[Rfam]
RNA sequence: AAGUGAAGCUAGGGGUGCUUCAUAGCUGAGAGACUUUGGUCAACCCUUAAAACUUGAUGCGGCUAAUACCGUCGAAAGAAAGCUAACUAUAAAGCUA
Numbered sequence: 001a002a003g004u005g006a007a008g009c010u011a012g013g014g015g016u017g018c019u020u021c022a023u024a025g026c027u028g029a030g031a032g033a034c035u036u037u038g039g040u041c042a043a044c045c046c047u048u049a050a051a052a053c054u055u056g057a058u059g060c061g062g063c064u065a066a067u068a069c070c071g072u073c074g075a076a077a078g079a080a081a082g083c084u085a086a087c088u089a090u091a092a093a094g095c096u097a
Base pairs, nucleotide, nucleotide: 007084008083009082010081011047012046013045014044017026018025019024033040034039053078054077055076059072060071061070062069
RNA: TPP riboswitch aptamer (THI element)